RNA sequence: AUCGUCGGCCGGACGGUCGCGAAGAUGGGGGACGGGCCCUGGUGGCCGCGCCUCAGCUCCGAGGAAAGUCCGGGCUCCACAGGGCAGGUUGCCAGGUAACGCCUGGGUGCGUGCGGCGCGAGCUUCACGCAACGGACAGUGCAACAGAAAGCAAACCGCCGCCUUCGCAAGAAGACGGUAAGGGUGAAAGGGUGGGGUAAGAGCCCACCGCGCGUUCGGCAACGAACGUGGCUCGGUAAACCCCGACCGGAGCAAGGCCAAAUAGGCGGUGAGAGACGGCCCGUCUCGAAAGGGCUGCCAGGCCUUCGGGCUGACGCAGUGAACCGCGGGUAGGCUGCUGGAGCGUGUCGGUGACGGCACGCCGAGAGGAAUGACCGUCCGGUGCACCUCGGUGUACCGACAGAACCCGGCUUAUAGGCCGGCGGUGUCC
Numbered sequence: 001a002u003c004g005u006c007g008g009c010c011g012g013a014c015g016g017u018c019g020c021g022a023a024g025a026u027g028g029g030g031g032a033c034g035g036g037c038c039c040u041g042g043u044g045g046c047c048g049c050g051c052c053u054c055a056g057c058u059c060c061g062a063g064g065a066a067a068g069u070c071c072g073g074g075c076u077c078c079a080c081a082g083g084g085c086a087g088g089u090u091g092c093c094a095g096g097u098a099a100c101g102c103c104u105g106g107g108u109g110c111g112u113g114c115g116g117c118g119c120g121a122g123c124u125u126c127a128c129g130c131a132a133c134g135g136a137c138a139g140u141g142c143a144a145c146a147g148a149a150a151g152c153a154a155a156c157c158g159c160c161g162c163c164u165u166c167g168c169a170a171g172a173a174g175a176c177g178g179u180a181a182g183g184g185u186g187a188a189a190g191g192g193u194g195g196g197g198u199a200a201g202a203g204c205c206c207a208c209c210g211c212g213c214g215u216u217c218g219g220c221a222a223c224g225a226a227c228g229u230g231g232c233u234c235g236g237u238a239a240a241c242c243c244c245g246a247c248c249g250g251a252g253c254a255a256g257g258c259c260a261a262a263u264a265g266g267c268g269g270u271g272a273g274a275g276a277c278g279g280c281c282c283g284u285c286u287c288g289a290a291a292g293g294g295c296u297g298c299c300a301g302g303c304c305u306u307c308g309g310g311c312u313g314a315c316g317c318a319g320u321g322a323a324c325c326g327c328g329g330g331u332a333g334g335c336u337g338c339u340g341g342a343g344c345g346u347g348u349c350g351g352u353g354a355c356g357g358c359a360c361g362c363c364g365a366g367a368g369g370a371a372u373g374a375c376c377g378u379c380c381g382g383u384g385c386a387c388c389u390c391g392g393u394g395u396a397c398c399g400a401c402a403g404a405a406c407c408c409g410g411c412u413u414a415u416a417g418g419c420c421g422g423c424g425g426u427g428u429c430c
Stems, first nucleotide, its partner, number of pairs: 001426010011415001012379007020061002023058002026055005066413003070410005075252004087248005092106005107133001108131006134243002139241002141237002156183002158179004163174004191209006210232001211230008256336004266327005305319002343362008

Overview: The family of this 430-nucleotide RNA from Gemmatimonas phototrophica is "Bacterial RNase P class A". The family's RNA type in Rfam is ribozyme. NCBI's taxonomy places the organism under Bacteria, Pseudomonadati, Gemmatimonadota, Gemmatimonadales, Gemmatimonas. A search with the family's covariance model found it, with a score of 276 bits.